This 80-nucleotide sequence from Mus musculus belongs to the Rfam family "mir-3473 microRNA precursor family". Its family is annotated with cellular response to mechanical stimulus, RISC complex and miRNA-mediated post-transcriptional gene silencing in the Gene Ontology.
[Rfam]
RNA sequence: ACCGCUGAGCCAUCUCUCUAGCCCCAAAUUAAAUAAUUCUUAAGAAUAAAUAAAUAGGGCUGGAGAGAUGGCUCAGCGGU
Numbered sequence: 001a002c003c004g005c006u007g008a009g010c011c012a013u014c015u016c017u018c019u020a021g022c023c024c025c026a027a028a029u030u031a032a033a034u035a036a037u038u039c040u041u042a043a044g045a046a047u048a049a050a051u052a053a054a055u056a057g058g059g060c061u062g063g064a065g066a067g068a069u070g071g072c073u074c075a076g077c078g079g080u
Base pairs, nucleotide, nucleotide: 002079003078004077005076006075007074008073009072010071011070012069013068014067015066016065017064018063019062020061021060022059023058024057
Dot-bracket structure: .(((((((((((((((((((((((................................))))))))))))))))))))))).